[Rfam]
RNA sequence: GGAAGCACGCGGCUCACUGGUGGGGCCCUCGGACUUCAAAUCCGAUGUGCGGGGCUGAUACCCUCGCGGGUGGGUUCGAUUCCCAUGUGCUUCC
Numbered sequence: 001g002g003a004a005g006c007a008c009g010c011g012g013c014u015c016a017c018u019g020g021u022g023g024g025g026c027c028c029u030c031g032g033a034c035u036u037c038a039a040a041u042c043c044g045a046u047g048u049g050c051g052g053g054g055c056u057g058a059u060a061c062c063c064u065c066g067c068g069g070g071u072g073g074g075u076u077c078g079a080u081u082c083c084c085a086u087g088u089g090c091u092u093c094c
Stems, first nucleotide, its partner, number of pairs: 001094009012027001014025002017022001029045005048068005071085004
RNA: Selenocysteine transfer RNA
Organism: Desulfobacter postgatei